[Rfam]
The record is a 75-nucleotide sequence from Propithecus coquereli, which matches "mir-1290 microRNA precursor family" in Rfam. NCBI's taxonomy places the organism under Eukaryota, Deuterostomia, Amniota, Theria, Propithecus. The base pairs follow the family's consensus structure, which was predicted with RNAalifold.
RNA sequence: GAUGUCAUGUUAGCACUCAAAAAGUUUCAGAUUUUGGAACAUUUCAGAUUUUGGAUUUUUGGAUUAGAGAUGUUC
Numbered sequence: 001g002a003u004g005u006c007a008u009g010u011u012a013g014c015a016c017u018c019a020a021a022a023a024g025u026u027u028c029a030g031a032u033u034u035u036g037g038a039a040c041a042u043u044u045c046a047g048a049u050u051u052u053g054g055a056u057u058u059u060u061g062g063a064u065u066a067g068a069g070a071u072g073u074u075c
Stems, first nucleotide, its partner, number of pairs: 001074006010067004017062007026055006033048006